[Rfam]
RNA sequence: UAAAUGCUCAUAGAUUAUCCUUAGGGCCAUGGGAUAAACAAAAUAUCCUGCAAAACCAAAUUAACACAUCCUAGAAUGGUUCUAACAUGGUCACUAACCUAUGGCUCUAAUACUAGUUAAUGGGAAAAACCA
Numbered sequence: 001u002a003a004a005u006g007c008u009c010a011u012a013g014a015u016u017a018u019c020c021u022u023a024g025g026g027c028c029a030u031g032g033g034a035u036a037a038a039c040a041a042a043a044u045a046u047c048c049u050g051c052a053a054a055a056c057c058a059a060a061u062u063a064a065c066a067c068a069u070c071c072u073a074g075a076a077u078g079g080u081u082c083u084a085a086c087a088u089g090g091u092c093a094c095u096a097a098c099c100u101a102u103g104g105c106u107c108u109a110a111u112a113c114u115a116g117u118u119a120a121u122g123g124g125a126a127a128a129a130c131c132a
Base pairs, nucleotide, nucleotide: 009122010121011120013118014117015116016115022109023108024107025106026105027104028103029102030101031100032099033098049087050086054081055080057078058077061074062073063072
RNA: MIR845_2 microRNA precursor family
Organism: Vitis rotundifolia